[Rfam]
RNA: HNH endonuclease-associated RNA and ORF (HEARO) RNA
RNA sequence: GUCAUGAACCACCCGCUGAAAAGCGGGGGCUUGCAACCGGACGAAAGGAUGUUUGCACGCCGGACAUGACCAGACUCAGGCUUGAAAGACAGCCUACGUUAGGAGCGAAAUGAGGUACGUUGGAGUGCGAGGCCAGCUCCAACCUCUACGGCGGACGAUUAAACAGAGGGAGAUGGUGAACUCAGUGUUGUCCGCGUCAAACCGCUCUAUAACAUUGUCGAGGCCAUAUUCAC
Numbered sequence: 001g002u003c004a005u006g007a008a009c010c011a012c013c014c015g016c017u018g019a020a021a022a023g024c025g026g027g028g029g030c031u032u033g034c035a036a037c038c039g040g041a042c043g044a045a046a047g048g049a050u051g052u053u054u055g056c057a058c059g060c061c062g063g064a065c066a067u068g069a070c071c072a073g074a075c076u077c078a079g080g081c082u083u084g085a086a087a088g089a090c091a092g093c094c095u096a097c098g099u100u101a102g103g104a105g106c107g108a109a110a111u112g113a114g115g116u117a118c119g120u121u122g123g124a125g126u127g128c129g130a131g132g133c134c135a136g137c138u139c140c141a142a143c144c145u146c147u148a149c150g151g152c153g154g155a156c157g158a159u160u161a162a163a164c165a166g167a168g169g170g171a172g173a174u175g176g177u178g179a180a181c182u183c184a185g186u187g188u189u190g191u192c193c194g195c196g197u198c199a200a201a202c203c204g205c206u207c208u209a210u211a212a213c214a215u216u217g218u219c220g221a222g223g224c225c226a227u228a229u230u231c232a233c
Base pairs, nucleotide, nucleotide: 001070002069003068004067005066006065010029012026013025016023017022030059032057033056034055035054036053073219074218075217078095079094080093081092082091098213099212100211101210103207104206105205106204107203115149116148119143120142121141122140123139124138125137126136127229129227131225132224133223134222151195152194153193154192155191156190157189158188159187163186164185166183167182168181172177